[Rfam]
RNA sequence: ACCAUGGAGAGUUUGAUCCUGGCUCAGGACGAACGCUGGCGGCGGGCUUUACACAUGCAAGUCGCGGGAGAGUCUCGGCCUUCGGGCCGAGAGGAGACCGGCGGAUGGGUGAGUAAUGCGUAGGUAAUCUGCCUGUAACGCGGGGACAACCCACCGAAAGGUGAGCUAAUACCCGAUAAUGCAGCGGCCCCGCAUGGGGACAGUUGUUAAAGGCUUCGGCCGGUUACAGAUGAGCCUGCGUGCCAUUAGCUAGUUGGUGGGGUAAGAGCCUACCAAGGCCAUGAUGGCUAGGGGGUCUGAGAGGAUGAUCCCCCACACUGGGACUGAGACACGGCCCAGACUCCUACGGGAGGCAGCAGUGAGGAAUCUUGCGCAAUGGAGGAAACUCUGACGCAGCCACGCCGCGUGCUGGAAGACGGCCCUAUGGGUUGUAAACAGCUUUUACUGGGGAAGAACCUGGACCUUUCGAGGUCCACUGACGGUACCUAGUGAAUAAGCACCGGCUAACUCCGUGCCAGCAGCCGCGGUAAUACGGAGGGUGCAAGCGUUGUCCGAAAUUAUUG
Numbered sequence: 001a002c003c004a005u006g007g008a009g010a011g012u013u014u015g016a017u018c019c020u021g022g023c024u025c026a027g028g029a030c031g032a033a034c035g036c037u038g039g040c041g042g043c044g045g046g047c048u049u050u051a052c053a054c055a056u057g058c059a060a061g062u063c064g065c066g067g068g069a070g071a072g073u074c075u076c077g078g079c080c081u082u083c084g085g086g087c088c089g090a091g092a093g094g095a096g097a098c099c100g101g102c103g104g105a106u107g108g109g110u111g112a113g114u115a116a117u118g119c120g121u122a123g124g125u126a127a128u129c130u131g132c133c134u135g136u137a138a139c140g141c142g143g144g145g146a147c148a149a150c151c152c153a154c155c156g157a158a159a160g161g162u163g164a165g166c167u168a169a170u171a172c173c174c175g176a177u178a179a180u181g182c183a184g185c186g187g188c189c190c191c192g193c194a195u196g197g198g199g200a201c202a203g204u205u206g207u208u209a210a211a212g213g214c215u216u217c218g219g220c221c222g223g224u225u226a227c228a229g230a231u232g233a234g235c236c237u238g239c240g241u242g243c244c245a246u247u248a249g250c251u252a253g254u255u256g257g258u259g260g261g262g263u264a265a266g267a268g269c270c271u272a273c274c275a276a277g278g279c280c281a282u283g284a285u286g287g288c289u290a291g292g293g294g295g296u297c298u299g300a301g302a303g304g305a306u307g308a309u310c311c312c313c314c315a316c317a318c319u320g321g322g323a324c325u326g327a328g329a330c331a332c333g334g335c336c337c338a339g340a341c342u343c344c345u346a347c348g349g350g351a352g353g354c355a356g357c358a359g360u361g362a363g364g365a366a367u368c369u370u371g372c373g374c375a376a377u378g379g380a381g382g383a384a385a386c387u388c389u390g391a392c393g394c395a396g397c398c399a400c401g402c403c404g405c406g407u408g409c410u411g412g413a414a415g416a417c418g419g420c421c422c423u424a425u426g427g428g429u430u431g432u433a434a435a436c437a438g439c440u441u442u443u444a445c446u447g448g449g450g451a452a453g454a455a456c457c458u459g460g461a462c463c464u465u466u467c468g469a470g471g472u473c474c475a476c477u478g479a480c481g482g483u484a485c486c487u488a489g490u491g492a493a494u495a496a497g498c499a500c501c502g503g504c505u506a507a508c509u510c511c512g513u514g515c516c517a518g519c520a521g522c523c524g525c526g527g528u529a530a531u532a533c534g535g536a537g538g539g540u541g542c543a544a545g546c547g548u549u550g551u552c553c554g555a556a557a558u559u560a561u562u563g
Stems, first nucleotide, its partner, number of pairs: 009025005027553004032549006039405006045398002047363001052361003056358003061102003066099002074091007109316003118241008128233002133229007141175004150165001152163004181207005187201001189198003212221003242288003249279003254276008291313004295306004318339005341352004369395001371394003377390005408439004418430004444490006453480001459474003497542005508537005518525002
Rfam assigns this 563-nucleotide part of an RNA from Fodinibius salinus to the family "Bacterial small subunit ribosomal RNA". Clan: SSU clan. Lineage of the source: Bacteria > Pseudomonadati > Balneolia > Balneolaceae > Fodinibius. The family's consensus secondary structure is taken from published work. The family has 99 seed sequences and 42,628 matches in Rfam 15.1. For this family Rfam cites "Crystal structure of the ribosome at 5.5 A resolution" (Yusupov et al., Science, 2001).